Shown here is a 171-nucleotide RNA from Ornithinibacillus bavariensis, a member of the family "glmS glucosamine-6-phosphate activated ribozyme aptamer". For this family Rfam cites "Control of gene expression by a natural metabolite-responsive ribozyme" (Winkler et al., Nature, 2004). A search with the family's covariance model found it, with a score of 128 bits. The family's consensus secondary structure is taken from published work. The family's RNA type in Rfam is riboswitch.
RNA sequence: AAAUUAAUUAAAGCGCCUGGACUAUUUUCAGAACGGAAAUGAAAAUAGUUGACGAGGAGAAGGUUAUCGAAUUUUUCGGCGGGUGCCUUCCGAUUGCACACUCCAGUCGUCAUGCUUUUUCCGGAAAACAAUAGGGUGACCUAUUGCACAAAGGGAAAGGGCUGAGUGUAA
Numbered sequence: 001a002a003a004u005u006a007a008u009u010a011a012a013g014c015g016c017c018u019g020g021a022c023u024a025u026u027u028u029c030a031g032a033a034c035g036g037a038a039a040u041g042a043a044a045a046u047a048g049u050u051g052a053c054g055a056g057g058a059g060a061a062g063g064u065u066a067u068c069g070a071a072u073u074u075u076u077c078g079g080c081g082g083g084u085g086c087c088u089u090c091c092g093a094u095u096g097c098a099c100a101c102u103c104c105a106g107u108c109g110u111c112a113u114g115c116u117u118u119u120u121c122c123g124g125a126a127a128a129c130a131a132u133a134g135g136g137u138g139a140c141c142u143a144u145u146g147c148a149c150a151a152a153g154g155g156a157a158a159g160g161g162c163u164g165a166g167u168g169u170a171a
Base pairs, nucleotide, nucleotide: 020050021049022048023047024046025045026044027043029041059090060089061088062087063086067079068078069077070076091109092108093107094106095105096104115161116160117159118158119157120156121155129146130145131144132143133142134141135140